[Rfam]
RNA: ASpks TB sRNA
Organism: Streptomyces sp. SirexAA-E
RNA sequence: CUUCAACGAACCCAGCCACAACGGCCGAUCCGAGGAGCGCCCCCGCCCAUACGUGGCCAGCAAAGCCUGCGCCUC
Number, nucleotide and partner (000 for none) at each position: 001c000002u000003u000004c000005a000006a000007c000008g000009a000010a000011c000012c000013c000014a000015g025016c024017c023018a000019c000020a000021a000022c000023g017024g016025c015026c000027g000028a000029u000030c000031c071032g070033a000034g000035g000036a000037g000038c065039g000040c000041c000042c000043c060044c000045g058046c000047c056048c055049a054050u000051a000052c000053g000054u049055g048056g047057c000058c045059a000060g043061c000062a000063a000064a000065g038066c000067c000068u000069g000070c032071g031072c000073c000074u000075c000